[Rfam]
RNA sequence: UUGUAUAGUGGACGGGGAAUGACACACCAGCGCUAUAUGAACUAAGCAGACUGGGGGUAAGUAGAUGAAAUACUGCAAGAUAGGCGGCGAAGCUAGCACCUAUUCUACGUAAGGCUGGCGGAC
Numbered sequence: 001u002u003g004u005a006u007a008g009u010g011g012a013c014g015g016g017g018a019a020u021g022a023c024a025c026a027c028c029a030g031c032g033c034u035a036u037a038u039g040a041a042c043u044a045a046g047c048a049g050a051c052u053g054g055g056g057g058u059a060a061g062u063a064g065a066u067g068a069a070a071u072a073c074u075g076c077a078a079g080a081u082a083g084g085c086g087g088c089g090a091a092g093c094u095a096g097c098a099c100c101u102a103u104u105c106u107a108c109g110u111a112a113g114g115c116u117g118g119c120g121g122a123c
Stems, first nucleotide, its partner, number of pairs: 001040010027054004046076004062107004080103005092119006